[Rfam]
RNA sequence: GAACGUUUGACAUCACUCUGGGACCAAGUUUUGAUGGAGACUCUUUGAGUUUCUAUCAAUACCUUUCACUGUACUUAGUUCCAAUUUAUAUUGCAAACAAGAUUAAUUUUAGGCGACUACUCACUAAGAUAUACCUUUUCUACCAUGGUUAUAUUAGUCCAUUUCACAGCCUUAAAU
Numbered sequence: 001g002a003a004c005g006u007u008u009g010a011c012a013u014c015a016c017u018c019u020g021g022g023a024c025c026a027a028g029u030u031u032u033g034a035u036g037g038a039g040a041c042u043c044u045u046u047g048a049g050u051u052u053c054u055a056u057c058a059a060u061a062c063c064u065u066u067c068a069c070u071g072u073a074c075u076u077a078g079u080u081c082c083a084a085u086u087u088a089u090a091u092u093g094c095a096a097a098c099a100a101g102a103u104u105a106a107u108u109u110u111a112g113g114c115g116a117c118u119a120c121u122c123a124c125u126a127a128g129a130u131a132u133a134c135c136u137u138u139u140c141u142a143c144c145a146u147g148g149u150u151a152u153a154u155u156a157g158u159c160c161a162u163u164u165c166a167c168a169g170c171c172u173u174a175a176a177u
Stems, first nucleotide, its partner, number of pairs: 007096003019083006026076004031059007111172004124157004129152003133149003
A member of the RNA family "Small nucleolar RNA snR80" from Saccharomyces uvarum, 177 nucleotides long. The sequence is in the family's curated seed alignment. NCBI's taxonomy places the organism under Eukaryota, Opisthokonta, Saccharomycotina, Saccharomycetes, Saccharomyces uvarum. The family's RNA type in Rfam is H/ACA-box small nucleolar RNA.